Background: Rfam assigns this 197-nucleotide sequence to the family "IMES-1 RNA motif". Rfam classes the family as a non-coding RNA gene.

[Rfam]
RNA sequence: AAGAUAACAAGAUCAGGAAGGGAACUGCAGAACCAAGAAUGAGAAAGUUAACUUAGGAAGAGACCAGAAAGGUGAAAGUUCAAGGAAGGUCAGCAUGCAAAAGAUCAAACUUGACCACCGAGAGUAAAAGAGAUCUUACUCAAGGAUGCAGAAGGUAAUCUCACUUUUGACACCUACUGAUCUCGAAUUAAAAAAAA
Numbered sequence: 001a002a003g004a005u006a007a008c009a010a011g012a013u014c015a016g017g018a019a020g021g022g023a024a025c026u027g028c029a030g031a032a033c034c035a036a037g038a039a040u041g042a043g044a045a046a047g048u049u050a051a052c053u054u055a056g057g058a059a060g061a062g063a064c065c066a067g068a069a070a071g072g073u074g075a076a077a078g079u080u081c082a083a084g085g086a087a088g089g090u091c092a093g094c095a096u097g098c099a100a101a102a103g104a105u106c107a108a109a110c111u112u113g114a115c116c117a118c119c120g121a122g123a124g125u126a127a128a129a130g131a132g133a134u135c136u137u138a139c140u141c142a143a144g145g146a147u148g149c150a151g152a153a154g155g156u157a158a159u160c161u162c163a164c165u166u167u168u169g170a171c172a173c174c175u176a177c178u179g180a181u182c183u184c185g186a187a188u189u190a191a192a193a194a195a196a197a
Stems, first nucleotide, its partner, number of pairs: 001054003013042003066178002070175002080114005085106001122141005130162005149169006